[Rfam]
RNA sequence: GGGUCCGCAGUUCACCCAGGCGUCACCGUCCCGCGAGGGAAGCUAAACCUGCUU
Numbered sequence: 001g002g003g004u005c006c007g008c009a010g011u012u013c014a015c016c017c018a019g020g021c022g023u024c025a026c027c028g029u030c031c032c033g034c035g036a037g038g039g040a041a042g043c044u045a046a047a048c049c050u051g052c053u054u
Base pairs, nucleotide, nucleotide: 001017002016003015004014029040030039031038032037